A member of the RNA family "Potassium channel RNA editing signal" from Lepisosteus oculatus, 114 nucleotides long. It scores 104 bits against the family's covariance model. About the family: This family represents a group of sequences related to the human potassium channel Kv1.1 hairpin element which directs the efficient modification of an adenosine to inosine by an adenosine deaminase acting on RNA (ADAR). The ADAR modification causes an isoleucine/valine recoding event which lies in the ion-conducting pore of the potassium channel.

[Rfam]
RNA sequence: UUGGGCUAUGGGGACAUGUACCCCCAGACAUGGUCAGGCAUGGUUGUGGGUGCUCUAUGUGCUCUGGCGGGUGUGCUGACCAUUGCCAUGCCCGUGCCCGUCAUUGUCAACAAU
Numbered sequence: 001u002u003g004g005g006c007u008a009u010g011g012g013g014a015c016a017u018g019u020a021c022c023c024c025c026a027g028a029c030a031u032g033g034u035c036a037g038g039c040a041u042g043g044u045u046g047u048g049g050g051u052g053c054u055c056u057a058u059g060u061g062c063u064c065u066g067g068c069g070g071g072u073g074u075g076c077u078g079a080c081c082a083u084u085g086c087c088a089u090g091c092c093c094g095u096g097c098c099c100g101u102c103a104u105u106g107u108c109a110a111c112a113a114u
Base pairs, nucleotide, nucleotide: 002113004111008107009106010105011104013102014101015100018097019096020095021094037077038076039075040074049063050062051061
Rfam classes the family as a cis-regulatory element.